[Rfam]
The record is a 95-nucleotide RNA from Canis lupus, which matches "mir-8799 microRNA precursor family" in Rfam. Taxonomically the source falls in Canis lupus (Eukaryota, Euteleostomi, Eutheria, Boreoeutheria). Clan: mir-8791 microRNA precursor clan.
RNA sequence: GAGGGGAGUGCUGGAUCUUGGGCUGUGUCCCUGAGCCCCAUGGGCUCCGGGGCCUGCACCGCUGGAAUUGCGCUCCUGAAGCUGCGCAGCCCCCU
Numbered sequence: 001g002a003g004g005g006g007a008g009u010g011c012u013g014g015a016u017c018u019u020g021g022g023c024u025g026u027g028u029c030c031c032u033g034a035g036c037c038c039c040a041u042g043g044g045c046u047c048c049g050g051g052g053c054c055u056g057c058a059c060c061g062c063u064g065g066a067a068u069u070g071c072g073c074u075c076c077u078g079a080a081g082c083u084g085c086g087c088a089g090c091c092c093c094c095u
Base pairs, nucleotide, nucleotide: 001095003093004092005091006090010087011086012084013083014082017081018080020076021075022074024072025071026070027069028066029065030064031061033059035057036056042054044053045052046051